[Rfam]
RNA sequence: CCUGCCCCUAGAGGUCUUGUAGAUGUGGCUGCCAUGUCACAUGUGCGUCAGUAGGCAGCAGAGAGGGGAAAAGCUACAUGUAUGAUCAAUGUUCUGACCUAUAAACAUCUGAAUGAUUACUCACAUAAUAUU
Numbered sequence: 001c002c003u004g005c006c007c008c009u010a011g012a013g014g015u016c017u018u019g020u021a022g023a024u025g026u027g028g029c030u031g032c033c034a035u036g037u038c039a040c041a042u043g044u045g046c047g048u049c050a051g052u053a054g055g056c057a058g059c060a061g062a063g064a065g066g067g068g069a070a071a072a073g074c075u076a077c078a079u080g081u082a083u084g085a086u087c088a089a090u091g092u093u094c095u096g097a098c099c100u101a102u103a104a105a106c107a108u109c110u111g112a113a114u115g116a117u118u119a120c121u122c123a124c125a126u127a128a129u130a131u132u
Stems, first nucleotide, its partner, number of pairs: 002061004007055004013049003019046003024041006068129001071126001073124001076121001083115002086112003090107004

Annotation:
This 132-nucleotide sequence from Rattus norvegicus belongs to the Rfam family "Small nucleolar RNA SNORA17". The family's consensus secondary structure was predicted with RNAalifold. Taxonomically the source falls in Rattus (Eukaryota, Metazoa, Amniota, Murinae). Rfam classes the family as an H/ACA-box small nucleolar RNA. The match comes from Rfam's covariance-model search (94 bits).